[Rfam]
RNA sequence: GUGGUUUUAUGAAGGCUUGCUCUGAAAACAGAAUGCUGUGAGUGCAGGCUGGAGGUCUUUACCAC
Numbered sequence: 001g002u003g004g005u006u007u008u009a010u011g012a013a014g015g016c017u018u019g020c021u022c023u024g025a026a027a028a029c030a031g032a033a034u035g036c037u038g039u040g041a042g043u044g045c046a047g048g049c050u051g052g053a054g055g056u057c058u059u060u061a062c063c064a065c
Base pairs, nucleotide, nucleotide: 001065002064003063004062005061014050015049016048017047018046019045020044022042023041029038030037031036